[Rfam]
RNA sequence: AACCGUGUAGGGUGGAGAUGCACAACCGGCAAACUGCGUAGUACGGCUUCUUUCCCUGCUUUUCCGUCCGCCUGCCGGCUGAUUCCUCCUCCUGAUUGAGCGCCUGCCACAACCCUGGCAGGCAGGAGACGCAGUCGCGGCCAGGGCCUAUCGAGCCCGAAGCUGCUGGACCCAACCUCGGCAUGGCCGCAGGUUGACGCGCACCAGACAUCGACCAUGAGAGUCGUGUGUGCCGAACGCCGUUUCCGGUAGCCCGGAAACCCU
Numbered sequence: 001a002a003c004c005g006u007g008u009a010g011g012g013u014g015g016a017g018a019u020g021c022a023c024a025a026c027c028g029g030c031a032a033a034c035u036g037c038g039u040a041g042u043a044c045g046g047c048u049u050c051u052u053u054c055c056c057u058g059c060u061u062u063u064c065c066g067u068c069c070g071c072c073u074g075c076c077g078g079c080u081g082a083u084u085c086c087u088c089c090u091c092c093u094g095a096u097u098g099a100g101c102g103c104c105u106g107c108c109a110c111a112a113c114c115c116u117g118g119c120a121g122g123c124a125g126g127a128g129a130c131g132c133a134g135u136c137g138c139g140g141c142c143a144g145g146g147c148c149u150a151u152c153g154a155g156c157c158c159g160a161a162g163c164u165g166c167u168g169g170a171c172c173c174a175a176c177c178u179c180g181g182c183a184u185g186g187c188c189g190c191a192g193g194u195u196g197a198c199g200c201g202c203a204c205c206a207g208a209c210a211u212c213g214a215c216c217a218u219g220a221g222a223g224u225c226g227u228g229u230g231u232g233c234c235g236a237a238c239g240c241c242g243u244u245u246c247c248g249g250u251a252g253c254c255c256g257g258a259a260a261c262c263c264u
Stems, first nucleotide, its partner, number of pairs: 014089004023081002026078005036071003040048003057066002090127005130201003134171003137166004144158004175194004179189003208231004212226004242261007

About this RNA: Rfam assigns this 264-nucleotide RNA from Pseudomonas fluvialis to the family "rne-II RNA". The organism belongs to Pseudomonas, within Bacteria. The base pairs follow the family's consensus structure, which is taken from published work. It is annotated as a cis-regulatory element.